[Rfam]
RNA sequence: UCUAAAACUUGAAAUAUAGGUUGAACACCAACAUCAAACAAUGUCGGGUUGUAGGACAAACUCGGACUUCUCUUUGUUGCUAAGAUUUGAACUUGAAUGACAAUAUUGAAUCCUGGACUCUGCAUAAAUGUUUUAGGUCUAUGUUUUAACUUUACAUA
Numbered sequence: 001u002c003u004a005a006a007a008c009u010u011g012a013a014a015u016a017u018a019g020g021u022u023g024a025a026c027a028c029c030a031a032c033a034u035c036a037a038a039c040a041a042u043g044u045c046g047g048g049u050u051g052u053a054g055g056a057c058a059a060a061c062u063c064g065g066a067c068u069u070c071u072c073u074u075u076g077u078u079g080c081u082a083a084g085a086u087u088u089g090a091a092c093u094u095g096a097a098u099g100a101c102a103a104u105a106u107u108g109a110a111u112c113c114u115g116g117a118c119u120c121u122g123c124a125u126a127a128a129u130g131u132u133u134u135a136g137g138u139c140u141a142u143g144u145u146u147u148a149a150c151u152u153u154a155c156a157u158a
Base pairs, nucleotide, nucleotide: 003156006153007152009148011147012146013145014144015143016142017141018140019139020138021136022135023134024133025132027131028130041125042124043123046121047120048119050117053114054113055112056111059107060106065101068099073095076092077091078090
The family of this 158-nucleotide RNA from Populus deltoides is "MIR2912 microRNA precursor family". Rfam 15.1 lists 15,051 matches to the family in 15 species. The family's consensus secondary structure was predicted with RNAalifold. The source organism's lineage runs through Eukaryota, Embryophyta, Tracheophyta, Gunneridae and Populus.